[Rfam]
RNA: Mason-Pfizer monkey virus packaging signal
Organism: Mus musculus
RNA sequence: UGGCGCCCAAAGUAAGGCUCGAGUAUAAAGGGACUAGUGAAGAUCACUGCAGUGUUUUUGGCCGGCCAACGAAUUUUGGUAUGGAACCUGCCACCUUGACUAGGGAUCCUGGUAAGUUUACAGUGAUCAUUGGGACAGACAUUGAAUAGCCAUGAAUUAUUUGUGGAAAGUUUGAAAAGGGCUAUAAAGGUGCGAUAGAUAAAAGUUAAAAUACAUAAUUUGCUUGCAUUUUUUUUUUUUUUUUGGUUUUGUUAAACAG
Numbered sequence: 001u002g003g004c005g006c007c008c009a010a011a012g013u014a015a016g017g018c019u020c021g022a023g024u025a026u027a028a029a030g031g032g033a034c035u036a037g038u039g040a041a042g043a044u045c046a047c048u049g050c051a052g053u054g055u056u057u058u059u060g061g062c063c064g065g066c067c068a069a070c071g072a073a074u075u076u077u078g079g080u081a082u083g084g085a086a087c088c089u090g091c092c093a094c095c096u097u098g099a100c101u102a103g104g105g106a107u108c109c110u111g112g113u114a115a116g117u118u119u120a121c122a123g124u125g126a127u128c129a130u131u132g133g134g135a136c137a138g139a140c141a142u143u144g145a146a147u148a149g150c151c152a153u154g155a156a157u158u159a160u161u162u163g164u165g166g167a168a169a170g171u172u173u174g175a176a177a178a179g180g181g182c183u184a185u186a187a188a189g190g191u192g193c194g195a196u197a198g199a200u201a202a203a204a205g206u207u208a209a210a211a212u213a214c215a216u217a218a219u220u221u222g223c224u225u226g227c228a229u230u231u232u233u234u235u236u237u238u239u240u241u242u243u244u245g246g247u248u249u250u251g252u253u254a255a256a257c258a259g
Base pairs, nucleotide, nucleotide: 006032007031008030012026013025014024035049036048037047038046087123089120090119095116097115100112101111102110103109104108131141132140147186148185149182150181151180194234195233197231198230199229200228203221204220205219206218207217208216244259246257247256248255249254